This 89-nucleotide RNA from Clostridium aciditolerans belongs to the Rfam family "c-di-GMP-I riboswitch aptamer". Its family is annotated with cyclic-di-GMP binding in the Gene Ontology.
RNA sequence: UAUCGACAAUAGCACACUUAUUGAAAAGUAAGGUCGCAAAGCUAUGGGUCUAAGGGAAUUGUUAAUCCUAUGAUUGCCAGGUUGCCGAA
Number, nucleotide and partner (000 for none) at each position: 001u000002a000003u000004c000005g000006a000007c000008a000009a000010u000011a000012g037013c036014a000015c000016a000017c032018u031019u030020a029021u028022u027023g000024a000025a000026a000027a022028g021029u020030a019031a018032g017033g000034u000035c000036g013037c012038a000039a000040a083041g082042c081043u080044a000045u079046g078047g077048g074049u073050c072051u000052a000053a000054g000055g068056g067057a066058a000059u000060u000061g000062u000063u000064a000065a000066u057067c056068c055069u000070a000071u000072g050073a049074u048075u000076g000077c047078c046079a045080g043081g042082u041083u040084g000085c000086c000087g000088a000089a000